[Rfam]
Rfam assigns this 102-nucleotide RNA from Propithecus coquereli to the family "Y RNA". A search with the family's covariance model found it, with a score of 55 bits. Rfam's curators write: Y RNAs are components of the Ro ribonucleoprotein particle (Ro RNP), in association with Ro60 and La proteins. The Y RNAs and Ro60 and La proteins are well conserved, but the function of the Ro RNP is not known. In humans the RNA component can be one of four small RNAs -- hY1, hY3, hY4 and hY5. The family's RNA type in Rfam is non-coding RNA gene. The literature on the family includes a 2000 paper in Nucleic Acids Res by Teunissen et al., "Conserved features of Y RNAs: a comparison of experimentally derived secondary structures".
RNA sequence: GAGUGGUCCAAGUGCAGUGGUGUUUGUAACAAACCCAUCACAACCAGUUACAAAUUCCUUUGUUCCUUUUCCACUCCCACUGUUUCACUCGACUAGCCUUAA
Numbered sequence: 001g002a003g004u005g006g007u008c009c010a011a012g013u014g015c016a017g018u019g020g021u022g023u024u025u026g027u028a029a030c031a032a033a034c035c036c037a038u039c040a041c042a043a044c045c046a047g048u049u050a051c052a053a054a055u056u057c058c059u060u061u062g063u064u065c066c067u068u069u070u071c072c073a074c075u076c077c078c079a080c081u082g083u084u085u086c087a088c089u090c091g092a093c094u095a096g097c098c099u100u101a102a
Stems, first nucleotide, its partner, number of pairs: 001098001004095005011089001014086001016081005022076001028064003032060002